RNA sequence: GUCAACUACCCCCACUUAACGCAUUAAUCGGCGUUUGAAGUGGGGGCUUGGGGAAACGUGUAAGCCAGGCUUAUACGCCCUCAAGCCCGGUUGAUUAGCCUCAGUGGUCGGGAUGUUUACCGAAAGGGGACAGCGAACCAUUACGUUAAGCCGGAAUAGAUAGGCACCCUGGGAUCCUCCACACGUCCCAGGCUCUGCGGUGAGUGUUUAAACAUCUCUGAUGGGUAGGAGAAGUGAUGCUCACACACAAACCCGGCAUUAACAUUGGCAAUGUGGACCCAC
Numbered sequence: 001g002u003c004a005a006c007u008a009c010c011c012c013c014a015c016u017u018a019a020c021g022c023a024u025u026a027a028u029c030g031g032c033g034u035u036u037g038a039a040g041u042g043g044g045g046g047c048u049u050g051g052g053g054a055a056a057c058g059u060g061u062a063a064g065c066c067a068g069g070c071u072u073a074u075a076c077g078c079c080c081u082c083a084a085g086c087c088c089g090g091u092u093g094a095u096u097a098g099c100c101u102c103a104g105u106g107g108u109c110g111g112g113a114u115g116u117u118u119a120c121c122g123a124a125a126g127g128g129g130a131c132a133g134c135g136a137a138c139c140a141u142u143a144c145g146u147u148a149a150g151c152c153g154g155a156a157u158a159g160a161u162a163g164g165c166a167c168c169c170u171g172g173g174a175u176c177c178u179c180c181a182c183a184c185g186u187c188c189c190a191g192g193c194u195c196u197g198c199g200g201u202g203a204g205u206g207u208u209u210a211a212a213c214a215u216c217u218c219u220g221a222u223g224g225g226u227a228g229g230a231g232a233a234g235u236g237a238u239g240c241u242c243a244c245a246c247a248c249a250a251a252c253c254c255g256g257c258a259u260u261a262a263c264a265u266u267g268g269c270a271a272u273g274u275g276g277a278c279c280c281a282c
Stems, first nucleotide, its partner, number of pairs: 001095007010046002012043002015040002048068003098269003103142005145263005150257005164198002168192008178277006200244009212235002215232005221226001